[Rfam]
RNA sequence: UGAAGUUUUCAAUUCCGUAGUGCAUUGCAGUGUGUUUAAUUAUUUACUGCAAGCGCUGCGGAUUUGGCAACUUUGAC
Dot-bracket structure: .....((.(((..(((((..(((.(((((..................))))))))..)))))..))).)).......
Numbered sequence: 001u002g003a004a005g006u007u008u009u010c011a012a013u014u015c016c017g018u019a020g021u022g023c024a025u026u027g028c029a030g031u032g033u034g035u036u037u038a039a040u041u042a043u044u045u046a047c048u049g050c051a052a053g054c055g056c057u058g059c060g061g062a063u064u065u066g067g068c069a070a071c072u073u074u075g076a077c
Stems, first nucleotide, its partner, number of pairs: 006070002009067003014062005021055003025052005